Rfam assigns this 99-nucleotide sequence from Parasporobacterium paucivorans to the family "Guanidine-I riboswitch aptamer".
For this family Rfam cites "New RNA motifs suggest an expanded scope for riboswitches in bacterial genetic control" (Barrick et al., Proc Natl Acad Sci U S A, 2004).
The pairing is the family consensus, mapped onto this sequence.
It scores 75 bits against the family's covariance model.
About the family: This family represents a conserved RNA structure found upstream of the ykkC and yxkD genes in Bacillus subtilis and related genes in other bacteria.
The source organism's lineage runs through Bacteria, Clostridia, Lachnospirales, Lachnospiraceae and Parasporobacterium paucivorans.
[Rfam]
Nucleotides: 099
Stems, first nucleotide, its partner, number of pairs: 007054006015044002020041001021039001022037001023034004056072007074094001076097001080092003
Number, partner (000 for none) and nucleotide at each position: 001000a002000g003000u004000a005000a006000a007054g008053u009052u010051u011050u012049c013000u014000a015044g016043g017000g018000u019000u020041c021039c022037g023034c024033a025032g026031u027000u028000u029000u030000g031026a032025c033024u034023g035000g036000c037022c038000a039021g040000u041020g042000a043016c044015c045000a046000a047000g048000a049012g050011a051010g052009a053008a054007c055000u056072c057071a058070c059069a060068g061067u062066u063000u064000u065000u066062a067061a068060c069059u070058g071057u072056g073000a074094c075000a076097c077000g078000g079000a080092a081091g082090g083000a084000u085000a086000a087000a088000a089000g090082c091081c092080u093000g094074g095000g096000a097076g098000a099000u